[Rfam]
RNA sequence: GGGGUGGCUAUGAUAGAGAUAAUUCCUCGUACUGAAUGCUUGUAAUUGUAAUGUGCAAUUGGGCAUGACAGACCACUUUUACACCCAUAGAAUUUGAGCCACC
Numbered sequence: 001g002g003g004g005u006g007g008c009u010a011u012g013a014u015a016g017a018g019a020u021a022a023u024u025c026c027u028c029g030u031a032c033u034g035a036a037u038g039c040u041u042g043u044a045a046u047u048g049u050a051a052u053g054u055g056c057a058a059u060u061g062g063g064c065a066u067g068a069c070a071g072a073c074c075a076c077u078u079u080u081a082c083a084c085c086c087a088u089a090g091a092a093u094u095u096g097a098g099c100c101a102c103c
Stems, first nucleotide, its partner, number of pairs: 003103002006100004
Rfam assigns this 103-nucleotide RNA sequence from Morus notabilis to the family "Small nucleolar RNA snoR8a". Gene Ontology terms of the family: nucleolus and RNA processing. The organism belongs to Morus, within Eukaryota. The match comes from Rfam's covariance-model search (52 bits). The family has 7 seed sequences and 956 matches in Rfam 15.1.